RNA sequence: CCCAAGCCCGGGCUCUUUCCACUGAGCCAAGAUAGAAGCCUGACUACUUGAUUUGUUUUGCUUAGAGAAGCAGCGUGGCUCAGUGGAAAGAGCAUGGGCUUUGGA
Numbered sequence: 001c002c003c004a005a006g007c008c009c010g011g012g013c014u015c016u017u018u019c020c021a022c023u024g025a026g027c028c029a030a031g032a033u034a035g036a037a038g039c040c041u042g043a044c045u046a047c048u049u050g051a052u053u054u055g056u057u058u059u060g061c062u063u064a065g066a067g068a069a070g071c072a073g074c075g076u077g078g079c080u081c082a083g084u085g086g087a088a089a090g091a092g093c094a095u096g097g098g099c100u101u102u103g104g105a
Stems, first nucleotide, its partner, number of pairs: 002104002005100006012093017